Background:
Shown here is a 75-nucleotide sequence from Neogobius melanostomus, a member of the family "mir-196 microRNA precursor family". Its family is annotated with gene silencing by miRNA and RISC complex in the Gene Ontology. A search with the family's covariance model found it, with a score of 72 bits. Rfam 15.1 lists 1,813 matches to the family in 642 species.
RNA sequence: CGUGUGGUUUAGGUAGUUUCAUGUUGUUGGGGUCCUUUCUCUAUCUCUGCAACAUGAAACUGUCUUUAUUGCUCC
Numbered sequence: 001c002g003u004g005u006g007g008u009u010u011a012g013g014u015a016g017u018u019u020c021a022u023g024u025u026g027u028u029g030g031g032g033u034c035c036u037u038u039c040u041c042u043a044u045c046u047c048u049g050c051a052a053c054a055u056g057a058a059a060c061u062g063u064c065u066u067u068a069u070u071g072c073u074c075c
Base pairs, nucleotide, nucleotide: 004072005071006070007069008068011065012064013063014062015061016060017059018058019057022054023053024052025051026050027049029047030046031045